[Rfam]
RNA sequence: CUGAAAGGGUGAUGUGGUGCCCUUGGACAAAAAUAUUAAAUGCUAGUCCGGCCUUCUCACAGGCUGGGCGACACACUCAAAUUGCGGGAAACCCCUAAAGCCUUCACUACCAAGCUGUGUUUCGAAAGGACAUGGUGGCCAGGUUAAUUGCCUCGGGUACGGUCACAACGUGAAGGAUGUUCCAAUGGGCAAUCCGCAGCCAAGCCCCUACGUGUGGUGUCCGUAAUACAGACAUUCCAUAUGGGGAAGGUUCAGAGACUAAAUGGGUGUGGGUGCGUUACUCUCGAAGUGACAAGCUUAAGAUAUAGUCCGGCUUCAGUAGAAAUGCUGGA
Numbered sequence: 001c002u003g004a005a006a007g008g009g010u011g012a013u014g015u016g017g018u019g020c021c022c023u024u025g026g027a028c029a030a031a032a033a034u035a036u037u038a039a040a041u042g043c044u045a046g047u048c049c050g051g052c053c054u055u056c057u058c059a060c061a062g063g064c065u066g067g068g069c070g071a072c073a074c075a076c077u078c079a080a081a082u083u084g085c086g087g088g089a090a091a092c093c094c095c096u097a098a099a100g101c102c103u104u105c106a107c108u109a110c111c112a113a114g115c116u117g118u119g120u121u122u123c124g125a126a127a128g129g130a131c132a133u134g135g136u137g138g139c140c141a142g143g144u145u146a147a148u149u150g151c152c153u154c155g156g157g158u159a160c161g162g163u164c165a166c167a168a169c170g171u172g173a174a175g176g177a178u179g180u181u182c183c184a185a186u187g188g189g190c191a192a193u194c195c196g197c198a199g200c201c202a203a204g205c206c207c208c209u210a211c212g213u214g215u216g217g218u219g220u221c222c223g224u225a226a227u228a229c230a231g232a233c234a235u236u237c238c239a240u241a242u243g244g245g246g247a248a249g250g251u252u253c254a255g256a257g258a259c260u261a262a263a264u265g266g267g268u269g270u271g272g273g274u275g276c277g278u279u280a281c282u283c284u285c286g287a288a289g290u291g292a293c294a295a296g297c298u299u300a301a302g303a304u305a306u307a308g309u310c311c312g313g314c315u316u317c318a319g320u321a322g323a324a325a326u327g328c329u330g331g332a
Stems, first nucleotide, its partner, number of pairs: 005024007030034001072271005078265002083198006093189003199251002205245003213239002255311001257310005273297002277293005317330005
RNA: Group I catalytic intron
Organism: Histoplasma capsulatum